[Rfam]
RNA sequence: GCUCCCCUUACAGCAAUUCUAACAUCUCUACUGAUUAAAGAAAACCCUCGGGAACUG
Numbered sequence: 001g002c003u004c005c006c007c008u009u010a011c012a013g014c015a016a017u018u019c020u021a022a023c024a025u026c027u028c029u030a031c032u033g034a035u036u037a038a039a040g041a042a043a044a045c046c047c048u049c050g051g052g053a054a055c056u057g
Base pairs, nucleotide, nucleotide: 001055003053004052005051006050
The record is a 57-nucleotide RNA from Polysphondylium violaceum, which matches "Class I RNA from Dictyostelium" in Rfam. On this family, see Sucgang et al., Genome Biol 2011: "Comparative genomics of the social amoebae Dictyostelium discoideum and Dictyostelium purpureum". Dictyostelium Class I RNA was first reported for Aspegren et al. 2004 in Dictyostelium discoideum. The base pairs follow the family's consensus structure, which is taken from published work. The family's RNA type in Rfam is non-coding RNA gene.